[Rfam]
RNA sequence: GGCCAAUGAGGACAAAAUAAACAAACUUUUCUGACACCUACUAUGAGAGCUGAACUUCGGCUCAUGAUUCUGACUUUUUUCUGAGGCUC
Numbered sequence: 001g002g003c004c005a006a007u008g009a010g011g012a013c014a015a016a017a018u019a020a021a022c023a024a025a026c027u028u029u030u031c032u033g034a035c036a037c038c039u040a041c042u043a044u045g046a047g048a049g050c051u052g053a054a055c056u057u058c059g060g061c062u063c064a065u066g067a068u069u070c071u072g073a074c075u076u077u078u079u080u081c082u083g084a085g086g087c088u089c
Base pairs, nucleotide, nucleotide: 001088002087003086004085049061050060051059052058053057

A member of the RNA family "Small nucleolar RNA SNORD60" from Menidia menidia, 89 nucleotides long.
A search with the family's covariance model found it, with a score of 44 bits.
Gene Ontology terms of the family: RNA processing and nucleolus.
Clan: SNORD60 clan.